[Rfam]
RNA sequence: GGUCACGAGUACCAGCGUCAAGCCCCGGCUAGCUGGUCGGCAACCCUCCACCGCGGCGGGGUGCUCCGGGUGACGACCAGGCUGAGGUCCAUACCGGACCCGGCAAGCGCGGACU
Numbered sequence: 001g002g003u004c005a006c007g008a009g010u011a012c013c014a015g016c017g018u019c020a021a022g023c024c025c026c027g028g029c030u031a032g033c034u035g036g037u038c039g040g041c042a043a044c045c046c047u048c049c050a051c052c053g054c055g056g057c058g059g060g061g062u063g064c065u066c067c068g069g070g071u072g073a074c075g076a077c078c079a080g081g082c083u084g085a086g087g088u089c090c091a092u093a094c095c096g097g098a099c100c101c102g103g104c105a106a107g108c109g110c111g112g113a114c115u
Stems, first nucleotide, its partner, number of pairs: 001078004009038001011037006021030002039065003044061003048056002081104004086100005
RNA: SAM (S-adenosyl methionine) riboswitch aptamer